[Rfam]
RNA sequence: GACCUAUCUUUAUACCAUCCAGGGUCUUAUACAAGACCCGGAGAACAAUUUUUGGAGACUUGUUCAUUAGAAUAAGUUA
Dot-bracket structure: .....................(((.(((....))).))).................(((((((((....))))))))).
Numbered sequence: 001g002a003c004c005u006a007u008c009u010u011u012a013u014a015c016c017a018u019c020c021a022g023g024g025u026c027u028u029a030u031a032c033a034a035g036a037c038c039c040g041g042a043g044a045a046c047a048a049u050u051u052u053u054g055g056a057g058a059c060u061u062g063u064u065c066a067u068u069a070g071a072a073u074a075a076g077u078u079a
Stems, first nucleotide, its partner, number of pairs: 022039003026035003057078009